Rfam assigns this 119-nucleotide RNA sequence from Salirhabdus euzebyi to the family "ylbH leader". A search with the family's covariance model found it, with a score of 89 bits. By type it is a cis-regulatory leader. About the family: This family is a putative regulatory RNA structure that is found upstream of the ylbH gene in B. subtilis and related low GC Gram-positive bacteria.
RNA sequence: UAAAAAAAAUGCCUGCAGAAUACUUUCCGCAGGCUCUCUUUGACUAUACAAAGAGAUCAAAAAAGGGAGAGGAGAAACCGGAGGAAGAACUUAUGGGGAAACGUAAGUCUUCUCCGUUU
Numbered sequence: 001u002a003a004a005a006a007a008a009a010u011g012c013c014u015g016c017a018g019a020a021u022a023c024u025u026u027c028c029g030c031a032g033g034c035u036c037u038c039u040u041u042g043a044c045u046a047u048a049c050a051a052a053g054a055g056a057u058c059a060a061a062a063a064a065g066g067g068a069g070a071g072g073a074g075a076a077a078c079c080g081g082a083g084g085a086a087g088a089a090c091u092u093a094u095g096g097g098g099a100a101a102c103g104u105a106a107g108u109c110u111u112c113u114c115c116g117u118u119u
Stems, first nucleotide, its partner, number of pairs: 011034006018027002035067002037054006079116004084112004089108005